[Rfam]
RNA: c-di-GMP-I riboswitch aptamer
RNA sequence: UACACGAAAAGGCAAACCUUUUGAAAGAAAGGGACGCAAAGCUAUGGGCCUAAGGAACCGAAGUUCUAGGGUCGCCAAGCUACCGAA
Numbered sequence: 001u002a003c004a005c006g007a008a009a010a011g012g013c014a015a016a017c018c019u020u021u022u023g024a025a026a027g028a029a030a031g032g033g034a035c036g037c038a039a040a041g042c043u044a045u046g047g048g049c050c051u052a053a054g055g056a057a058c059c060g061a062a063g064u065u066c067u068a069g070g071g072u073c074g075c076c077a078a079g080c081u082a083c084c085g086a087a
Stems, first nucleotide, its partner, number of pairs: 012037002017032006040081004045077003048072003055066004